U4 spliceosomal RNA: a 130-nucleotide RNA from Neogale vison. A reference for the family is Zhan et al. (2018), "Structures of the human pre-catalytic spliceosome and its precursor spliceosome", Cell Res. The family's RNA type in Rfam is spliceosomal small nuclear RNA.

RNA sequence: AGCUUUGCAUAGUGCUGGUAUUGUAGCCAAUGAGGUUUAUCUGAGGUGCGAUUAUUGCUAAUUGAAAAACUGGAAAAAAAACACAAGUACAUGUAAGUUAAAUAACGUUCUAUUAAAAAACCAAUGGGUC
Numbered sequence: 001a002g003c004u005u006u007g008c009a010u011a012g013u014g015c016u017g018g019u020a021u022u023g024u025a026g027c028c029a030a031u032g033a034g035g036u037u038u039a040u041c042u043g044a045g046g047u048g049c050g051a052u053u054a055u056u057g058c059u060a061a062u063u064g065a066a067a068a069a070c071u072g073g074a075a076a077a078a079a080a081a082c083a084c085a086a087g088u089a090c091a092u093g094u095a096a097g098u099u100a101a102a103u104a105a106c107g108u109u110c111u112a113u114u115a116a117a118a119a120a121c122c123a124a125u126g127g128g129u130c
Base pairs, nucleotide, nucleotide: 020052021051022050023049024048026047027046028045034042035041085114086113091108092107093106094105096103120129121128122127